gyrA RNA: an 88-nucleotide RNA sequence from Pseudomonas syringae.
[Rfam]
RNA sequence: ACGUGAGUUGGGUCCGGGCCUGUAUGGGGCUCAACGAGUUUGGUGCGGCUCAGGAGAGCCUUCGCCGAACGUCCUCAAGAGUGCGGAA
Dot-bracket structure: ......(((((((((...........)))))))))((((((((((.((((......)))))..))))))).))...............
Overview: Lineage of the source: Bacteria > Pseudomonas > Pseudomonas syringae group genomosp. 1 > Pseudomonas syringae > Pseudomonas syringae pv. syringae. The family's consensus secondary structure is taken from published work.